This 149-nucleotide RNA sequence from Candidatus Enterococcus dunnyi belongs to the Rfam family "glmS glucosamine-6-phosphate activated ribozyme aptamer". Taxonomically the source falls in Enterococcus (Bacteria, Bacillati, Bacillota, Lactobacillales). The literature on the family includes a 2006 paper in Nat Struct Mol Biol by Jansen et al., "Backbone and nucleobase contacts to glucosamine-6-phosphate in the glmS ribozyme". The match comes from Rfam's covariance-model search (89 bits). The base pairs follow the family's consensus structure, which is taken from published work. It is annotated as a riboswitch.
[Rfam]
RNA sequence: AAUAUAGGAAUAGCGCCAGGCCUGUUGUUUCAGGUGACGAGGAGAGAGCUUAUCGAAACAUUCGGCGGAUAGCUCUAGGGGCUGCACUCUACAAGCUGGAAAUAAAAAAUAAUUGCAAAAUUAUAACAAAGAUUCAGCUAAGCAGAAUA
Numbered sequence: 001a002a003u004a005u006a007g008g009a010a011u012a013g014c015g016c017c018a019g020g021c022c023u024g025u026u027g028u029u030u031c032a033g034g035u036g037a038c039g040a041g042g043a044g045a046g047a048g049c050u051u052a053u054c055g056a057a058a059c060a061u062u063c064g065g066c067g068g069a070u071a072g073c074u075c076u077a078g079g080g081g082c083u084g085c086a087c088u089c090u091a092c093a094a095g096c097u098g099g100a101a102a103u104a105a106a107a108a109a110u111a112a113u114u115g116c117a118a119a120a121u122u123a124u125a126a127c128a129a130a131g132a133u134u135c136a137g138c139u140a141a142g143c144a145g146a147a148u149a
Stems, first nucleotide, its partner, number of pairs: 020035005045076005053065004077090004094139007109124006